[Rfam]
RNA sequence: UUUUACCAGGGCGGGCUCCCCGCCCUCGGCAGCAAGCGAAGGUGUCGUUGACACCCGUGGCAUGGCUCCCCGGCUAUGCCACGUUUUCUUUUA
Numbered sequence: 001u002u003u004u005a006c007c008a009g010g011g012c013g014g015g016c017u018c019c020c021c022g023c024c025c026u027c028g029g030c031a032g033c034a035a036g037c038g039a040a041g042g043u044g045u046c047g048u049u050g051a052c053a054c055c056c057g058u059g060g061c062a063u064g065g066c067u068c069c070c071c072g073g074c075u076a077u078g079c080c081a082c083g084u085u086u087u088c089u090u091u092u093a
Base pairs, nucleotide, nucleotide: 009025010024011023012022013021014020015019029037030036041055042054043053044052045051046050056083057082058081059080060079061078062077063076064075065074066073067072

A member of the RNA family "Translational regulator of tfoXVC" from Salinivibrio sp. KP-1, 93 nucleotides long. A reference for the family is Yamamoto et al. (2011), "Identification of a chitin-induced small RNA that regulates translation of the tfoX gene, encoding a positive regulator of natural competence in Vibrio cholerae", J Bacteriol.